[Rfam]
Shown here is a 108-nucleotide sequence from Ditylenchus dipsaci, a member of the family "Potassium channel RNA editing signal". The family's RNA type in Rfam is cis-regulatory element. This family represents a group of sequences related to the human potassium channel Kv1.1 hairpin element which directs the efficient modification of an adenosine to inosine by an adenosine deaminase acting on RNA (ADAR). It scores 55 bits against the family's covariance model.
RNA sequence: GCAGCAAACAAAAAUGAAUUUAGAUAUCUGGGAAAAAUUAUUGGCUCAAUUUGCGCCCUUGCCGGUGUACUCACAAUUGCCUUACCUGUUCCGGUCAUAGUCAGCAAU
Numbered sequence: 001g002c003a004g005c006a007a008a009c010a011a012a013a014a015u016g017a018a019u020u021u022a023g024a025u026a027u028c029u030g031g032g033a034a035a036a037a038u039u040a041u042u043g044g045c046u047c048a049a050u051u052u053g054c055g056c057c058c059u060u061g062c063c064g065g066u067g068u069a070c071u072c073a074c075a076a077u078u079g080c081c082u083u084a085c086c087u088g089u090u091c092c093g094g095u096c097a098u099a100g101u102c103a104g105c106a107a108u
Base pairs, nucleotide, nucleotide: 001108004105005104008101009100011098014095015094016091017090018089019088031071032070034068043057044056045055